[Rfam]
RNA sequence: CUAUGCCUGGCUCCCUGUAUGCCAUUUGCAAAGCCCAUCAAGAUAUUGGUGGCCUCAGCAGAUGGCGUGCGAGGAGUCAUGCAUGC
Numbered sequence: 001c002u003a004u005g006c007c008u009g010g011c012u013c014c015c016u017g018u019a020u021g022c023c024a025u026u027u028g029c030a031a032a033g034c035c036c037a038u039c040a041a042g043a044u045a046u047u048g049g050u051g052g053c054c055u056c057a058g059c060a061g062a063u064g065g066c067g068u069g070c071g072a073g074g075a076g077u078c079a080u081g082c083a084u085g086c
Stems, first nucleotide, its partner, number of pairs: 002085005008079007016071009027060003
A member of the RNA family "mir-160 microRNA precursor family" from Tripterygium wilfordii, 86 nucleotides long. The organism belongs to Tripterygium, within Eukaryota. Pairs were carried over by alignment from the consensus structure, which was predicted with PFOLD. Its family is annotated with miRNA-mediated post-transcriptional gene silencing and RISC complex in the Gene Ontology.